Nucleotides: 183
Stems, first nucleotide, its partner, number of pairs: 027043003045086010062076005087182003090178004
Number, partner (000 for none) and nucleotide at each position: 001000c002000c003000g004000g005000c006000c007000u008000g009000u010000c011000a012000u013000u014000g015000g016000g017000g018000a019000g020000u021000a022000g023000c024000c025000u026000c027043c028042c029041u030000u031000c032000g033000a034000u035000u036000u037000c038000g039000a040000g041029a042028g043027g044000g045086g046085u047084u048083u049082g050081c051080g052079u053078c054077a055000a056000c057000a058000g059000a060000c061000u062076u063075g064074g065073g066072u067000c068000u069000u070000c071000g072066g073065c074064c075063c076062a077054u078053g079052g080051c081050g082049c083048a084047a085046a086045c087182g088181g089180u090178u091177u092176u093175c094000c095000g096000g097000a098000c099000u100000u101000g102000g103000c104000g105000a106000g107000a108000c109000c110000u111000u112000u113000g114000a115000c116000u117000g118000c119000g120000c121000a122000g123000c124000c125000u126000c127000c128000g129000u130000u131000u132000u133000g134000g135000c136000c137000g138000g139000g140000g141000a142000u143000g144000c145000c146000g147000c148000g149000c150000a151000g152000u153000c154000a155000a156000u157000g158000g159000u160000u161000c162000a163000u164000u165000c166000g167000u168000u169000c170000c171000g172000g173000c174000c175093g176092g177091a178090g179000u180089a181088c182087u183000u
The record is a 183-nucleotide RNA from Variovorax terrae, which matches "Manganese Mn2+ riboswitch aptamer (yybP-ykoY)" in Rfam. The match comes from Rfam's covariance-model search (93 bits). About the family: This RNA was originally discovered in E. coli during a large scale screen and was named SraF. The family was later found to exist upstream of related families of protein genes in many bacteria, including the the yybP and ykoK genes in B. subtilis. The specific functions of these proteins are unknown, but this structured RNA element may be involved in their genetic regulation as a riboswitch. The literature on the family includes a 2015 paper in Mol Cell by Price et al., "Mn(2+)-sensing mechanisms of yybP-ykoY orphan riboswitches".